[Rfam]
RNA sequence: UGGCGCCCAAUGUGGGGUGUGGACACGGGGGAAAUCGCAAGGGAAGAGGCAUUUGAUAGUUCGGUCGAACACAGCAGAAGUCAGUUCAACAAAGAUCGCCGCGUGAACCUGCCGCAUCACUCUUAAAAGGUACAGUAACGCCAAAUUAUGGGACAAGCAUAAAGUUUUUGUUAAGCAAUUAAAAGAAGCCUUAAAGACACAGGGAGUAAGGGUUAAAAGUAAUGAGCUUUUUAAGUUUUUUGAACUUAUCAAGGACAACUGCCCAU
Numbered sequence: 001u002g003g004c005g006c007c008c009a010a011u012g013u014g015g016g017g018u019g020u021g022g023a024c025a026c027g028g029g030g031g032a033a034a035u036c037g038c039a040a041g042g043g044a045a046g047a048g049g050c051a052u053u054u055g056a057u058a059g060u061u062c063g064g065u066c067g068a069a070c071a072c073a074g075c076a077g078a079a080g081u082c083a084g085u086u087c088a089a090c091a092a093a094g095a096u097c098g099c100c101g102c103g104u105g106a107a108c109c110u111g112c113c114g115c116a117u118c119a120c121u122c123u124u125a126a127a128a129g130g131u132a133c134a135g136u137a138a139c140g141c142c143a144a145a146u147u148a149u150g151g152g153a154c155a156a157g158c159a160u161a162a163a164g165u166u167u168u169u170g171u172u173a174a175g176c177a178a179u180u181a182a183a184a185g186a187a188g189c190c191u192u193a194a195a196g197a198c199a200c201a202g203g204g205a206g207u208a209a210g211g212g213u214u215a216a217a218a219g220u221a222a223u224g225a226g227c228u229u230u231u232u233a234a235g236u237u238u239u240u241u242g243a244a245c246u247u248a249u250c251a252a253g254g255a256c257a258a259c260u261g262c263c264c265a266u
Stems, first nucleotide, its partner, number of pairs: 006031003012026003036048001038046001081130002085126002095121001101115003136156001141152002144149001162192002164189003200242008210228002213225003251266001253264002256261001
RNA: Mason-Pfizer monkey virus packaging signal
Organism: Sciurus carolinensis